[Rfam]
RNA sequence: UUACCACUCUGGCCUUUUGGCUUAGAUCAAGUGUAGUAUCUGUUCUUAAUAGUUUAACCACUAUUAUGAGGGCACCGCCCUCAUUCUUUGGUUAUCAAAUUUUUGCCGCCCUUGUUCUUCGAGCUCUGCUUGCAACUCGAUGGACGUGAUGACCUUGCUACUGCACUGCCGGCUUGUGUCGUCGGGGGAUC
Numbered sequence: 001u002u003a004c005c006a007c008u009c010u011g012g013c014c015u016u017u018u019g020g021c022u023u024a025g026a027u028c029a030a031g032u033g034u035a036g037u038a039u040c041u042g043u044u045c046u047u048a049a050u051a052g053u054u055u056a057a058c059c060a061c062u063a064u065u066a067u068g069a070g071g072g073c074a075c076c077g078c079c080c081u082c083a084u085u086c087u088u089u090g091g092u093u094a095u096c097a098a099a100u101u102u103u104u105g106c107c108g109c110c111c112u113u114g115u116u117c118u119u120c121g122a123g124c125u126c127u128g129c130u131u132g133c134a135a136c137u138c139g140a141u142g143g144a145c146g147u148g149a150u151g152a153c154c155u156u157g158c159u160a161c162u163g164c165a166c167u168g169c170c171g172g173c174u175u176g177u178g179u180c181g182u183c184g185g186g187g188g189a190u191c
Base pairs, nucleotide, nucleotide: 008026009025010024011022012021013020014019047066048065049064050063051062052061067083068082069081070080071079072078073077114145115144116143117142119140120139121138127134128133147184148183149182150181151180152179154176157173158172159171